[Rfam]
RNA sequence: UCCGCCGUCGGGGCCAGGCGGCCCAGGCGGAUUCCUCGACUUGAUCAUUGCGAGAAAGGUCUGAGAUGAAAGGGCGGUUUUUACGGAUGUCUUUUGUCCGCCCGGCAAUGCCCUCCUCUGCUGCUCUAUGAGUACGAUGGAGAGGAAACAAAAACUAGUCCUUGUU
Numbered sequence: 001u002c003c004g005c006c007g008u009c010g011g012g013g014c015c016a017g018g019c020g021g022c023c024c025a026g027g028c029g030g031a032u033u034c035c036u037c038g039a040c041u042u043g044a045u046c047a048u049u050g051c052g053a054g055a056a057a058g059g060u061c062u063g064a065g066a067u068g069a070a071a072g073g074g075c076g077g078u079u080u081u082u083a084c085g086g087a088u089g090u091c092u093u094u095u096g097u098c099c100g101c102c103c104g105g106c107a108a109u110g111c112c113c114u115c116c117u118c119u120g121c122u123g124c125u126c127u128a129u130g131a132g133u134a135c136g137a138u139g140g141a142g143a144g145g146a147a148a149c150a151a152a153a154a155c156u157a158g159u160c161c162u163u164g165u166u
Stems, first nucleotide, its partner, number of pairs: 006029004011024005033069002035065004040058003086160003089155002092153006111145002113142004122134005
The record is a 166-nucleotide part of an RNA from Thelonectria olida, which matches "Ascomycota telomerase RNA" in Rfam. The organism belongs to Thelonectria, within Eukaryota. Rfam 15.1 lists 475 matches to the family in 456 species. A reference for the family is Qi et al. (2013), "The common ancestral core of vertebrate and fungal telomerase RNAs", Nucleic Acids Res. By type it is a non-coding RNA gene.